[Rfam]
RNA sequence: GACGUGCUCCGAGAUCGGUGGAAUUCCGAGCCGGCGGUGACAGCCCGCUAACCGGUAACCGUCGUCGUCGCCGAGAACGCACGGCGCCCUCAAGGGGGCCCGGGCCCUCGACGACGACACGGCCCCGGCCUGACUGGUGAGAUUCCAGUGCCGACAGAACAGUCUGGAAGGGAGGAGCACGGU
Numbered sequence: 001g002a003c004g005u006g007c008u009c010c011g012a013g014a015u016c017g018g019u020g021g022a023a024u025u026c027c028g029a030g031c032c033g034g035c036g037g038u039g040a041c042a043g044c045c046c047g048c049u050a051a052c053c054g055g056u057a058a059c060c061g062u063c064g065u066c067g068u069c070g071c072c073g074a075g076a077a078c079g080c081a082c083g084g085c086g087c088c089c090u091c092a093a094g095g096g097g098g099c100c101c102g103g104g105c106c107c108u109c110g111a112c113g114a115c116g117a118c119a120c121g122g123c124c125c126c127g128g129c130c131u132g133a134c135u136g137g138u139g140a141g142a143u144u145c146c147a148g149u150g151c152c153g154a155c156a157g158a159a160c161a162g163u164c165u166g167g168a169a170g171g172g173a174g175g176a177g178c179a180c181g182g183u
Stems, first nucleotide, its partner, number of pairs: 003181008016028003030163002032153002034048004043151002052128004133149005155166003